[Rfam]
RNA sequence: AUCCCUUCGCUAAGGAGUCUCUUAUGCGAAAACUCAUGGCCUCUAUGAUAGUGGGCCUGAUAGGGCUGACCGCGCUGUCCGUGACAAUCACGGCUGUCGCAUGCGGUGACUCGAGCUAUCAGUCAUCUUCUGAUGGUAAAUGAUCCCGCCGCCCGAAAGCGCCGAGUGCGCACAAAAAAGGCCUUCAUCGUCAGAUGAAGGCCUUUUACU
Numbered sequence: 001a002u003c004c005c006u007u008c009g010c011u012a013a014g015g016a017g018u019c020u021c022u023u024a025u026g027c028g029a030a031a032a033c034u035c036a037u038g039g040c041c042u043c044u045a046u047g048a049u050a051g052u053g054g055g056c057c058u059g060a061u062a063g064g065g066c067u068g069a070c071c072g073c074g075c076u077g078u079c080c081g082u083g084a085c086a087a088u089c090a091c092g093g094c095u096g097u098c099g100c101a102u103g104c105g106g107u108g109a110c111u112c113g114a115g116c117u118a119u120c121a122g123u124c125a126u127c128u129u130c131u132g133a134u135g136g137u138a139a140a141u142g143a144u145c146c147c148g149c150c151g152c153c154c155g156a157a158a159g160c161g162c163c164g165a166g167u168g169c170g171c172a173c174a175a176a177a178a179a180g181g182c183c184u185u186c187a188u189c190g191u192c193a194g195a196u197g198a199a200g201g202c203c204u205u206u207u208a209c210u
Stems, first nucleotide, its partner, number of pairs: 002036001006030005013022003038057003041053001043051002063154004072100003075096001079093005103149003108145002111143002159171004176207014
This 210-nucleotide sequence from Paraburkholderia sp. BL23I1N1 belongs to the Rfam family "Burkholderia sRNA 11".
The match comes from Rfam's covariance-model search (108 bits).
From the family's description: Identified by RNA-seq, RACE and Northern blot. Strongly expressed in biofilm.
The family's RNA type in Rfam is small RNA.
The base pairs follow the family's consensus structure, which was predicted with RNAfold.
The source organism's lineage runs through Bacteria, Pseudomonadati, Burkholderiales, Burkholderiaceae and Paraburkholderia.